[Rfam]
RNA sequence: ACAAUAGCAGUCUAGGGUUCCGUUGAGCGCUGAGUUAGCGUUCAAGCUGGUCCGAGAGGCGGCGUAUGAACUAUUGCGGUUCAUAUAACACGGAGGGACAAAAGCCUGGGAGAU
Numbered sequence: 001a002c003a004a005u006a007g008c009a010g011u012c013u014a015g016g017g018u019u020c021c022g023u024u025g026a027g028c029g030c031u032g033a034g035u036u037a038g039c040g041u042u043c044a045a046g047c048u049g050g051u052c053c054g055a056g057a058g059g060c061g062g063c064g065u066a067u068g069a070a071c072u073a074u075u076g077c078g079g080u081u082c083a084u085a086u087a088a089c090a091c092g093g094a095g096g097g098a099c100a101a102a103a104g105c106c107u108g109g110g111a112g113a114u
Stems, first nucleotide, its partner, number of pairs: 007063002010060003015053002020050002022047001023045009064086008089109001091112001095107003

This 114-nucleotide sequence from Paenibacillus swuensis belongs to the Rfam family "Guanidine-I riboswitch aptamer".